[Rfam]
RNA sequence: CGGGGAAAGAAGACCCUGUUGAGCUUGACUCUAGUUUGACAUUGUGAAGAGACAUAUGAGGUGUAGAAUAGGAGGGAGCUUCGGCGCCGGUGAAAUACCUCCACUCGUACUGUUUCUUUACUUAUUCAUUGAAGCGGAACUGGGCUUCAUCGCCCAAUUUCUAGCGUUAAGGUCCUUCGCGGGCUGAUCCGGGAUGAAGACAUUGUCAGGUGGGGAGUUUGGCUGGGGCGGCACAUCUGUUAAACCAUAACGCAGGUGUCCUAAGGGGGACUCAUGGAGAACAGAAAUCUCCAGUAGAGCAAAAGGGCAAAAGUCCCCUUGAUUUUGAUUUUCAGUGUGAAUACAAACCAUGAAAGUGUGGCCUAUCGAUCCUUUAGUCCCUCGAAAUUUGAGGCUAGAGGUGCCAGAAAAGUUACCACAGGGAUAACUGGCUUGUGGCAGCCAAGCGUUCAUAGCGACGUUGCUUUUUGAUCCUUCGAUGUCGGCUCUUCCUAUCAUACCGAAGCAGAAUUCGGUAAGCGUUGGAUUGUUCACCCACUAAUAGGGAACGUGAGCUGGGUUUAGACCGUCGUGAGACAGGUUAGUUUUACCCUA
Numbered sequence: 001c002g003g004g005g006a007a008a009g010a011a012g013a014c015c016c017u018g019u020u021g022a023g024c025u026u027g028a029c030u031c032u033a034g035u036u037u038g039a040c041a042u043u044g045u046g047a048a049g050a051g052a053c054a055u056a057u058g059a060g061g062u063g064u065a066g067a068a069u070a071g072g073a074g075g076g077a078g079c080u081u082c083g084g085c086g087c088c089g090g091u092g093a094a095a096u097a098c099c100u101c102c103a104c105u106c107g108u109a110c111u112g113u114u115u116c117u118u119u120a121c122u123u124a125u126u127c128a129u130u131g132a133a134g135c136g137g138a139a140c141u142g143g144g145c146u147u148c149a150u151c152g153c154c155c156a157a158u159u160u161c162u163a164g165c166g167u168u169a170a171g172g173u174c175c176u177u178c179g180c181g182g183g184c185u186g187a188u189c190c191g192g193g194a195u196g197a198a199g200a201c202a203u204u205g206u207c208a209g210g211u212g213g214g215g216a217g218u219u220u221g222g223c224u225g226g227g228g229c230g231g232c233a234c235a236u237c238u239g240u241u242a243a244a245c246c247a248u249a250a251c252g253c254a255g256g257u258g259u260c261c262u263a264a265g266g267g268g269g270a271c272u273c274a275u276g277g278a279g280a281a282c283a284g285a286a287a288u289c290u291c292c293a294g295u296a297g298a299g300c301a302a303a304a305g306g307g308c309a310a311a312a313g314u315c316c317c318c319u320u321g322a323u324u325u326u327g328a329u330u331u332u333c334a335g336u337g338u339g340a341a342u343a344c345a346a347a348c349c350a351u352g353a354a355a356g357u358g359u360g361g362c363c364u365a366u367c368g369a370u371c372c373u374u375u376a377g378u379c380c381c382u383c384g385a386a387a388u389u390u391g392a393g394g395c396u397a398g399a400g401g402u403g404c405c406a407g408a409a410a411a412g413u414u415a416c417c418a419c420a421g422g423g424a425u426a427a428c429u430g431g432c433u434u435g436u437g438g439c440a441g442c443c444a445a446g447c448g449u450u451c452a453u454a455g456c457g458a459c460g461u462u463g464c465u466u467u468u469u470g471a472u473c474c475u476u477c478g479a480u481g482u483c484g485g486c487u488c489u490u491c492c493u494a495u496c497a498u499a500c501c502g503a504a505g506c507a508g509a510a511u512u513c514g515g516u517a518a519g520c521g522u523u524g525g526a527u528u529g530u531u532c533a534c535c536c537a538c539u540a541a542u543a544g545g546g547a548a549c550g551u552g553a554g555c556u557g558g559g560u561u562u563a564g565a566c567c568g569u570c571g572u573g574a575g576a577c578a579g580g581u582u583a584g585u586u587u588u589a590c591c592c593u594a
Base pairs, nucleotide, nucleotide: 003593004592005591007588008587015422016421017420018419020418021417022414023413024412025411026410028218029217030216031215035210036209037208038207039206040205041204044121045120046119047118048117049116050115051114052113053112055109056108057107058106059105060104071102072101073100074099075098078085079084125198126197127196128195129194135191136190137189138188143154144153145152171185172184173183174182175181221234222232223231224230235257236256237255238254239253240252260361261360266318267317268316269315270314271313272298273297275293276292277291278290279289280288299308300307323347324346325345328342329341330340331339349358350357351356372400373399374398375397376396377395380394381393382392383391431472433470435469437465438464439463440462441461442460446456447455483558484556485555486554487553488550489547490546491545492544493543496521499516500515501514502513503512504511523537524536525535527533564582565581566580567579568577569576570575
RNA: Eukaryotic large subunit ribosomal RNA, nucleotides 3620 to 4213
Organism: Drechslerella stenobrocha